[Rfam]
RNA sequence: CGGCUGUAAUGGUCAAAUGGUUGAAGGCUUUCAUUAUUCUUCUUCCGCUACCCCAUCUACAUUGGAACCCUUCAGUGGCGCCCAGUGCGAAUGCCGCGGUGGCCACCCACUCGUACGGGUAACCUGCGAUUGCUGCGUGUGGCUCUAAGCAAUGAAGAUAACACUUGAGGGAGGCUUCACUCUGCAGAGAGAUCUUCACCGUCGCAUGGCGCGCUGGAUUACGAUCGCUGAGGGCUUGGGGUAACGGUCGGAGAUGGAUAUGUCAACUCCAAUUUUU
Number, nucleotide and partner (000 for none) at each position: 001c000002g014003g013004c012005u000006g000007u000008a000009a000010u000011g000012g004013u003014c002015a000016a000017a000018u000019g274020g273021u272022u271023g270024a000025a268026g000027g000028c000029u265030u000031u000032c262033a261034u260035u000036a259037u258038u257039c256040u000041u254042c253043u252044u000045c247046c246047g245048c000049u243050a242051c241052c240053c239054c238055a237056u000057c000058u000059a000060c000061a000062u000063u000064g000065g000066a000067a000068c000069c234070c233071u232072u000073c230074a229075g228076u227077g226078g000079c223080g222081c000082c217083c216084a215085g214086u213087g212088c211089g210090a000091a207092u206093g205094c204095c000096g202097c201098g200099g199100u000101g144102g000103c142104c141105a140106c139107c135108c132109a131110c000111u129112c128113g127114u126115a125116c000117g124118g123119g000120u000121a000122a000123c118124c117125u115126g114127c113128g112129a111130u000131u109132g108133c000134u000135g107136c000137g000138u000139g106140u105141g104142g103143c000144u101145c149146u000147a000148a000149g145150c000151a000152a000153u198154g197155a196156a195157g194158a193159u192160a000161a000162c000163a000164c189165u188166u187167g000168a000169g000170g000171g182172a181173g180174g000175c000176u000177u000178c000179a000180c173181u172182c171183u000184g000185c000186a000187g166188a165189g164190a000191g000192a159193u158194c157195u156196u155197c154198a153199c099200c098201g097202u096203c000204g094205c093206a092207u091208g000209g000210c089211g088212c087213g086214c085215u084216g083217g082218a000219u000220u000221a000222c080223g079224a000225u000226c077227g076228c075229u074230g073231a000232g071233g070234g069235c000236u000237u055238g054239g053240g052241g051242u050243a049244a000245c047246g046247g045248u000249c000250g000251g000252a043253g042254a041255u000256g039257g038258a037259u036260a034261u033262g032263u000264c000265a029266a000267c000268u025269c000270c023271a022272a021273u020274u019275u000276u000277u000
Rfam assigns this 277-nucleotide RNA sequence from Colletotrichum tanaceti to the family "Fungal signal recognition particle RNA". On this family, see Batey et al., J Mol Biol 2001: "Structural and energetic analysis of RNA recognition by a universally conserved protein from the signal recognition particle". The organism belongs to Colletotrichum destructivum species complex, within Eukaryota. Rfam 15.1 lists 748 matches to the family in 741 species. The family is grouped with related families in Rfam's "SRP clan". By type it is a non-coding RNA gene. A search with the family's covariance model found it, with a score of 150 bits.